Description:
The family of this 77-nucleotide RNA from Cupriavidus plantarum is "SAH (S-adenosyl-L-homocysteine) riboswitch aptamer". Rfam links the family to the GO terms S-adenosylhomocysteine metabolic process and regulation of gene expression. Taxonomically the source falls in Cupriavidus (Bacteria, Pseudomonadati, Pseudomonadota, Burkholderiales).
RNA sequence: CACUCCGAGGAGCGUUGCAACGGAUGACCCCCGCGUCAUUCGCCAGGCUCGGAUGUCUUCAACGGCGCUCGCUGAUC
Dot-bracket structure: ...(((((............((((((((......))))))))......)))))........................